The record is a 94-nucleotide RNA from Halotalea alkalilenta, which matches "Selenocysteine transfer RNA" in Rfam.
Pairs were carried over by alignment from the consensus structure, which is taken from published work.
For this family Rfam cites "Eukaryotic selenocysteine tRNA has the 9/4 secondary structure" (Mizutani and Goto, FEBS Lett, 2000).
The source organism's lineage runs through Bacteria, Pseudomonadati, Pseudomonadota, Oceanospirillales and Halotalea.
A search with the family's covariance model found it, with a score of 65 bits.
[Rfam]
RNA sequence: GGAAGAGGAUCGACCCCCGGUGGGGCGACCGGACUUCAACUCCGUGUGGGGGCUGCCAAGCAGUCCUCGGUGGGUUCGACUCCCACGCUCUUCC
Numbered sequence: 001g002g003a004a005g006a007g008g009a010u011c012g013a014c015c016c017c018c019g020g021u022g023g024g025g026c027g028a029c030c031g032g033a034c035u036u037c038a039a040c041u042c043c044g045u046g047u048g049g050g051g052g053c054u055g056c057c058a059a060g061c062a063g064u065c066c067u068c069g070g071u072g073g074g075u076u077c078g079a080c081u082c083c084c085a086c087g088c089u090c091u092u093c094c
Stems, first nucleotide, its partner, number of pairs: 001094007008086001011027002014024002017022001028047002030044004049068004071085004